[Rfam]
RNA: Bacillaceae-1 RNA
Organism: Peribacillus faecalis
RNA sequence: AAGUAAGGAACAGCGACUAAGAGCGCUACAUCCUGUAGCAAUGUUGCUGUGACUCUCAUCGUGAGAG
Numbered sequence: 001a002a003g004u005a006a007g008g009a010a011c012a013g014c015g016a017c018u019a020a021g022a023g024c025g026c027u028a029c030a031u032c033c034u035g036u037a038g039c040a041a042u043g044u045u046g047c048u049g050u051g052a053c054u055c056u057c058a059u060c061g062u063g064a065g066a067g
Stems, first nucleotide, its partner, number of pairs: 011049007025039005053067005